[Rfam]
RNA sequence: AUAAAAAAACGACAAGUACCAAAGACAGCGGGCGCGUUUAUUUGCUUAAUAUCCUGCCGAGGUCAAUGUCUAAAAGUUUAAUUAGUCUAAUUUCUUCUAUUAGGAAUGGCAAUAAACAAUAGGCAACCUCUGGCAAAUAGCUAGAGGUUUUGUCAUUAAAGA
Numbered sequence: 001a002u003a004a005a006a007a008a009a010c011g012a013c014a015a016g017u018a019c020c021a022a023a024g025a026c027a028g029c030g031g032g033c034g035c036g037u038u039u040a041u042u043u044g045c046u047u048a049a050u051a052u053c054c055u056g057c058c059g060a061g062g063u064c065a066a067u068g069u070c071u072a073a074a075a076g077u078u079u080a081a082u083u084a085g086u087c088u089a090a091u092u093u094c095u096u097c098u099a100u101u102a103g104g105a106a107u108g109g110c111a112a113u114a115a116a117c118a119a120u121a122g123g124c125a126a127c128c129u130c131u132g133g134c135a136a137a138u139a140g141c142u143a144g145a146g147g148u149u150u151u152g153u154c155a156u157u158a159a160a161g162a
Base pairs, nucleotide, nucleotide: 028057029056030055031054032053034045035044036043127147128146129145130144131143132142133141134140

A member of the RNA family "Ribosomal protein L10 leader" from Chondrocystis sp. NIES-4102, 162 nucleotides long. The match comes from Rfam's covariance-model search (61 bits). This family is a putative r-protein leader autoregulatory structure found in B. subtilis and other low-GC Gram-positive bacteria.